RNA sequence: GUGCCAAACCGUUCUAUCGUACAGGCAUUUGUCUGUAAGGAAAGUCCGGACACCAUAGGACAGUAUAGCGGGUAACGCCCGUCAUAAUGACCCUCGCGUCAUUAUAGGACAAGUGCAGCAGAAAGAAUGUACAGGUAAUGCUGUAGUGAAAUCAGGUAAACUCUAUACGGUGAAAUGCUAUGUAUAUCGGCUUUAAGGAUUGUCCGUCCGUUGCCGAGGGGUAAGCAGCUUGAGUGUAUUGGUAACAAUGCACCCAGAUAAAUGAUAGGACUCGACAGAAUCCGGCUUAUAGGUUUGGCGUUUUU
Numbered sequence: 001g002u003g004c005c006a007a008a009c010c011g012u013u014c015u016a017u018c019g020u021a022c023a024g025g026c027a028u029u030u031g032u033c034u035g036u037a038a039g040g041a042a043a044g045u046c047c048g049g050a051c052a053c054c055a056u057a058g059g060a061c062a063g064u065a066u067a068g069c070g071g072g073u074a075a076c077g078c079c080c081g082u083c084a085u086a087a088u089g090a091c092c093c094u095c096g097c098g099u100c101a102u103u104a105u106a107g108g109a110c111a112a113g114u115g116c117a118g119c120a121g122a123a124a125g126a127a128u129g130u131a132c133a134g135g136u137a138a139u140g141c142u143g144u145a146g147u148g149a150a151a152u153c154a155g156g157u158a159a160a161c162u163c164u165a166u167a168c169g170g171u172g173a174a175a176u177g178c179u180a181u182g183u184a185u186a187u188c189g190g191c192u193u194u195a196a197g198g199a200u201u202g203u204c205c206g207u208c209c210g211u212u213g214c215c216g217a218g219g220g221g222u223a224a225g226c227a228g229c230u231u232g233a234g235u236g237u238a239u240u241g242g243u244a245a246c247a248a249u250g251c252a253c254c255c256a257g258a259u260a261a262a263u264g265a266u267a268g269g270a271c272u273c274g275a276c277a278g279a280a281u282c283c284g285g286c287u288u289a290u291a292g293g294u295u296u297g298g299c300g301u302u303u304u305u
Stems, first nucleotide, its partner, number of pairs: 001301010011290001012270007020037007042288003046285005051172004058205004063168005068082005083107001084105008108163002113161002115157002130145005176227004187217005197209004234253008
Bacterial RNase P class A: a 305-nucleotide sequence from Parvicella tangerina. Its family is annotated with ribonuclease P activity, tRNA processing and dimeric ribonuclease P complex in the Gene Ontology. Lineage of the source: Bacteria > Pseudomonadati > Bacteroidota > Flavobacteriales > Parvicella. Rfam classes the family as a ribozyme.